[Rfam]
RNA sequence: AGAAAAGAGGUUCGCGAACUCCCUCUAUAAAAAAACUAAGGUGCU
Numbered sequence: 001a002g003a004a005a006a007g008a009g010g011u012u013c014g015c016g017a018a019c020u021c022c023c024u025c026u027a028u029a030a031a032a033a034a035a036c037u038a039a040g041g042u043g044c045u
Base pairs, nucleotide, nucleotide: 006026007025008024009023010022016037